Shown here is a 115-nucleotide sequence from Zingiber officinale, a member of the family "MIR390 microRNA precursor family". The organism belongs to Zingiber, within Eukaryota. The match comes from Rfam's covariance-model search (89 bits). The family has 16 seed sequences and 649 matches in Rfam 15.1. The literature on the family includes a 2005 paper in Nucleic Acids Res by Gustafson et al., "ASRP: the Arabidopsis Small RNA Project Database".
[Rfam]
RNA sequence: UGCAAGAAUCUUUGAAGCUCAGGAGGGAUAGCGCCAUGGGUGGACUUGUGAAAGGUUUCUCAGAAAGCCUGUUUGUCUAUUGCGCUAUCUAUCCUGAGUUUCAUGGGUUCUUAAU
Numbered sequence: 001u002g003c004a005a006g007a008a009u010c011u012u013u014g015a016a017g018c019u020c021a022g023g024a025g026g027g028a029u030a031g032c033g034c035c036a037u038g039g040g041u042g043g044a045c046u047u048g049u050g051a052a053a054g055g056u057u058u059c060u061c062a063g064a065a066a067g068c069c070u071g072u073u074u075g076u077c078u079a080u081u082g083c084g085c086u087a088u089c090u091a092u093c094c095u096g097a098g099u100u101u102c103a104u105g106g107g108u109u110c111u112u113a114a115u
Stems, first nucleotide, its partner, number of pairs: 010106001016100009026090009